RNA sequence: CCAUCAUCAGUAGUGGUUUUAACUUACUUUGUUAUACAAGUAAUUAAAAUCUAUCCCGGGGUCAAGUAUGAUGAUUGGAGCCGAAUGGCCUAGAAAAUGCAUCCGUUCCGUCCUCGGAGAUGAUUGAGUAGCUGUCCCGGUCGGUGUCUCAGGUGGGACAUUGUUGGGUUGUUGUUCGCACAUAA
Numbered sequence: 001c002c003a004u005c006a007u008c009a010g011u012a013g014u015g016g017u018u019u020u021a022a023c024u025u026a027c028u029u030u031g032u033u034a035u036a037c038a039a040g041u042a043a044u045u046a047a048a049a050u051c052u053a054u055c056c057c058g059g060g061g062u063c064a065a066g067u068a069u070g071a072u073g074a075u076u077g078g079a080g081c082c083g084a085a086u087g088g089c090c091u092a093g094a095a096a097a098u099g100c101a102u103c104c105g106u107u108c109c110g111u112c113c114u115c116g117g118a119g120a121u122g123a124u125u126g127a128g129u130a131g132c133u134g135u136c137c138c139g140g141u142c143g144g145u146g147u148c149u150c151a152g153g154u155g156g157g158a159c160a161u162u163g164u165u166g167g168g169u170u171g172u173u174g175u176u177c178g179c180a181c182a183u184a185a
Stems, first nucleotide, its partner, number of pairs: 015051008024043006056117006063110001070103004074098003080089003128175005136168005142163009